RNA sequence: AAGUGAAGUGAUGAAUUAUUGUUUCCCUAUUGGUUUGAUUGCCGCAAUGAUGGCUUUUAUUGCUUCAAACUUGCUGAUCACUU
Numbered sequence: 001a002a003g004u005g006a007a008g009u010g011a012u013g014a015a016u017u018a019u020u021g022u023u024u025c026c027c028u029a030u031u032g033g034u035u036u037g038a039u040u041g042c043c044g045c046a047a048u049g050a051u052g053g054c055u056u057u058u059a060u061u062g063c064u065u066c067a068a069a070c071u072u073g074c075u076g077a078u079c080a081c082u083u
Base pairs, nucleotide, nucleotide: 002082003081004080005079037057041054042053043052
The family of this 83-nucleotide sequence from Ceratodon purpureus is "Small nucleolar RNA Z102/R77". Rfam links the family to the GO terms RNA processing and nucleolus. By type it is a C/D-box small nucleolar RNA. On this family, see Barneche et al., J Mol Biol 2001: "Identification of 66 box C/D snoRNAs in Arabidopsis thaliana: extensive gene duplications generated multiple isoforms predicting new ribosomal RNA 2'-O-methylation sites".